This 149-nucleotide RNA sequence from Shigella boydii belongs to the Rfam family "Short Intergenic Abundant RNA".
The family's RNA type in Rfam is antitoxin RNA.
Rfam describes the family as follows. This family contains multiple ncRNA from E. coli that were identified in a large scale screen of E. coli, were they were called candidates 43,55 and 61. These RNAs have also been identified by other groups and called QUAD RNAs.
Lineage of the source: Bacteria > Gammaproteobacteria > Enterobacteriaceae > Shigella > Shigella boydii.
On this family, see Wassarman et al., Genes Dev 2001: "Identification of novel small RNAs using comparative genomics and microarrays".
RNA sequence: UUGACACUAAGGGCGGAGUGACAUAAUUUCAGGAGUGAGGGUUAGGGAGAGGUUUCCCCCUCCCCCUGGGGUUCUUAGUAAGCCUGGAAGCUAAUCACUAAGAGUAUCACCAGUAUGAUGACGUGCUUCAUCAUACCCCUUUCCUUAUU
Numbered sequence: 001u002u003g004a005c006a007c008u009a010a011g012g013g014c015g016g017a018g019u020g021a022c023a024u025a026a027u028u029u030c031a032g033g034a035g036u037g038a039g040g041g042u043u044a045g046g047g048a049g050a051g052g053u054u055u056c057c058c059c060c061u062c063c064c065c066c067u068g069g070g071g072u073u074c075u076u077a078g079u080a081a082g083c084c085u086g087g088a089a090g091c092u093a094a095u096c097a098c099u100a101a102g103a104g105u106a107u108c109a110c111c112a113g114u115a116u117g118a119u120g121a122c123g124u125g126c127u128u129c130a131u132c133a134u135a136c137c138c139c140u141u142u143c144c145u146u147a148u149u
Base pairs, nucleotide, nucleotide: 031145032144033143034142037141038140039139040138041137045064046063047062066113067112068111069110114135115134116133117132118131119130120129
Dot-bracket structure: ..............................((((..(((((...(((..............))).((((........................................))))(((((((........))))))).)))))))))....